The record is a 122-nucleotide sequence from Aerococcus sp. HMSC10H05, which matches "FMN riboswitch aptamer (RFN element)" in Rfam. It scores 119 bits against the family's covariance model. Lineage of the source: Bacteria > Bacillati > Bacilli > Aerococcaceae > Aerococcus. Rfam 15.1 lists 6,230 matches to the family in 5,120 species.
[Rfam]
RNA sequence: UAAAAUCUUCAGGGCAGGGUGUAAUUCCCGACCGGCGGUAAAGUCCGCGACCUCCUUUAGUUAGGGGCUGACUCGGUGUAAUUCCGAGACCGACAGUAGAGUCUGGAUGGAAGAAGAGUAGA
Numbered sequence: 001u002a003a004a005a006u007c008u009u010c011a012g013g014g015c016a017g018g019g020u021g022u023a024a025u026u027c028c029c030g031a032c033c034g035g036c037g038g039u040a041a042a043g044u045c046c047g048c049g050a051c052c053u054c055c056u057u058u059a060g061u062u063a064g065g066g067g068c069u070g071a072c073u074c075g076g077u078g079u080a081a082u083u084c085c086g087a088g089a090c091c092g093a094c095a096g097u098a099g100a101g102u103c104u105g106g107a108u109g110g111a112a113g114a115a116g117a118g119u120a121g122a
Base pairs, nucleotide, nucleotide: 004119006117007116008115009114010113017029018028019027031102032101033092034091035048036047037046038045043090044089052067053066072088073087074086075085076084094105095104096103